RNA sequence: GGGACAGGGGGGUCUCCGUCUCCGGAUGGAACCGCACCGGAUGGAGCCUGUCCCGCAGGUUGCGCGAGAGCGUGGCCAGUGGUUGUCGCUCGGGGGUGAUCGCCG
Numbered sequence: 001g002g003g004a005c006a007g008g009g010g011g012g013u014c015u016c017c018g019u020c021u022c023c024g025g026a027u028g029g030a031a032c033c034g035c036a037c038c039g040g041a042u043g044g045a046g047c048c049u050g051u052c053c054c055g056c057a058g059g060u061u062g063c064g065c066g067a068g069a070g071c072g073u074g075g076c077c078a079g080u081g082g083u084u085g086u087c088g089c090u091c092g093g094g095g096g097u098g099a100u101c102g103c104c105g
Stems, first nucleotide, its partner, number of pairs: 001054008014046007058077008